Notes: The record is a 248-nucleotide RNA sequence from Rhadinovirus humangamma8, which matches "Kaposi's sarcoma-associated herpesvirus internal ribosome entry site" in Rfam. Its family is annotated with ribosome binding in the Gene Ontology. The source organism's lineage runs through Viruses, Duplodnaviria, Peploviricota, Gammaherpesvirinae and Rhadinovirus humangamma8. About the family: This family represents the Kaposi's sarcoma-associated herpesvirus (KSHV) internal ribosome entry site (IRES) present in the vCyclin gene. The vCyclin and vFLIP coding sequences are present on a bicistronic transcript and it is thought the IRES may initiate translation of vFLIP from this bicistronic transcript. A reference for the family is Bieleski and Talbot (2001), "Kaposi's sarcoma-associated herpesvirus vCyclin open reading frame contains an internal ribosome entry site", J Virol. Pairs were carried over by alignment from the consensus structure, which is taken from published work.
[Rfam]
RNA sequence: UUGCUAUGCCGCGGCAGACUCCUUUUCCCGCCAAGAACUUAUAGACCAGGAGAAAGAACUCCUUGAGAAGUUGGCGUGGCGAACAGAGGCAGUCUUAGCGACGGACGUCACUUCCUUCUUGUUACUUAAAUUGCUGGGGGGCUCCCAACACCUGGACUUUUGGCACCACGAGGUCAACACCCUGAUUACAAAAGCCUUAGUUGACCCAAAGACUGGCUCAUUGCCCGCCUCUAUUAUCAGCGCUGCAG
Number, nucleotide and partner (000 for none) at each position: 001u000002u000003g000004c000005u000006a000007u000008g000009c000010c100011g099012c098013g000014g000015c000016a095017g094018a093019c092020u091021c089022c088023u087024u086025u085026u000027c000028c000029c081030g080031c079032c078033a077034a000035g000036a072037a071038c070039u069040u068041a000042u000043a000044g000045a000046c000047c000048a063049g062050g061051a060052g059053a000054a000055a000056g000057a000058a000059c052060u051061c050062c049063u048064u000065g000066a000067g000068a040069a039070g038071u037072u036073g000074g000075c000076g000077u033078g032079g031080c030081g029082a000083a000084c000085a025086g024087a023088g022089g021090c000091a020092g019093u018094c017095u016096u000097a000098g012099c011100g010101a000102c000103g115104g114105a113106c000107g000108u000109c000110a000111c000112u000113u105114c104115c103116u000117u000118c000119u000120u000121g000122u000123u000124a000125c000126u000127u000128a000129a000130a000131u000132u000133g241134c240135u239136g238137g232138g231139g230140g229141g228142c227143u000144c000145c000146c203147a202148a201149c200150a000151c000152c000153u000154g196155g195156a000157c194158u193159u192160u191161u190162g189163g000164c000165a000166c000167c000168a000169c184170g183171a000172g181173g180174u179175c000176a000177a000178c000179a174180c173181c172182c000183u170184g169185a000186u000187u000188a000189c162190a161191a160192a159193a158194g157195c155196c154197u000198u000199a000200g149201u148202u147203g146204a000205c000206c000207c000208a000209a000210a000211g000212a000213c000214u000215g225216g224217c223218u000219c000220a000221u000222u000223g217224c216225c215226c000227g142228c141229c140230u139231c138232u137233a000234u000235u000236a000237u000238c136239a135240g134241c133242g000243c000244u000245g000246c000247a000248g000